RNA: raiA RNA
Organism: Nocardioides marmorisolisilvae
RNA sequence: UCCGUCCGGGUCCGUGGUUGCGUCAGGCAGGUGCCGGUCCGGGGAUGUCUCCGGCCAGAACCAGCCCGACAAGCCGAUGCCAGUCGCAGGCGAAACGGCCCACGUAAGACCAGGCAGGGUUCGUCCCUGGAGCGUCGAUCACGGUGCGGCUUAGUCGUAAGUCCUGCCUCUUGCCCCACGUCAGACACGUGGACGCGAGGGAGAAGGCCAGUAGUGGCAGAAGCUGCGACCGUCUCAGCAGGCGGGUGUGGGGUAGAAGACCAGGUCGGCCGGACGGG
Numbered sequence: 001u002c003c004g005u006c007c008g009g010g011u012c013c014g015u016g017g018u019u020g021c022g023u024c025a026g027g028c029a030g031g032u033g034c035c036g037g038u039c040c041g042g043g044g045a046u047g048u049c050u051c052c053g054g055c056c057a058g059a060a061c062c063a064g065c066c067c068g069a070c071a072a073g074c075c076g077a078u079g080c081c082a083g084u085c086g087c088a089g090g091c092g093a094a095a096c097g098g099c100c101c102a103c104g105u106a107a108g109a110c111c112a113g114g115c116a117g118g119g120u121u122c123g124u125c126c127c128u129g130g131a132g133c134g135u136c137g138a139u140c141a142c143g144g145u146g147c148g149g150c151u152u153a154g155u156c157g158u159a160a161g162u163c164c165u166g167c168c169u170c171u172u173g174c175c176c177c178a179c180g181u182c183a184g185a186c187a188c189g190u191g192g193a194c195g196c197g198a199g200g201g202a203g204a205a206g207g208c209c210a211g212u213a214g215u216g217g218c219a220g221a222a223g224c225u226g227c228g229a230c231c232g233u234c235u236c237a238g239c240a241g242g243c244g245g246g247u248g249u250g251g252g253g254u255a256g257a258a259g260a261c262c263a264g265g266u267c268g269g270c271c272g273g274a275c276g277g278g
Base pairs, nucleotide, nucleotide: 001278002277003276004275005274006273007272008271009270012269013268014267015263016262017261018260019259077249078248079247080090082151083150084149085148086147087146088145099144100143104139108135111132142256163242164241165240166239167238168201169200170199171198172197173196174195205235206234207233208232214227215226216225217224218223